Notes: A member of the RNA family "tRNA" from Curtobacterium sp. Leaf261, 74 nucleotides long. Taxonomically the source falls in Curtobacterium (Bacteria, Bacillati, Actinomycetes, Microbacteriaceae). Rfam classes the family as a transfer RNA. The base pairs follow the family's consensus structure, which is taken from published work.
[Rfam]
RNA sequence: GCCCCCGUGGCCCAACUGGCAGAGGCGUGCGACUUAAAAUCGCUGAGUUGCGGGUUCGAGUCCCGCCGGGGGUA
Numbered sequence: 001g002c003c004c005c006c007g008u009g010g011c012c013c014a015a016c017u018g019g020c021a022g023a024g025g026c027g028u029g030c031g032a033c034u035u036a037a038a039a040u041c042g043c044u045g046a047g048u049u050g051c052g053g054g055u056u057c058g059a060g061u062c063c064c065g066c067c068g069g070g071g072g073u074a
Base pairs, nucleotide, nucleotide: 001073002072003071004070005069006068007067010026011025012024029043030042031041032040050066051065052064053063054062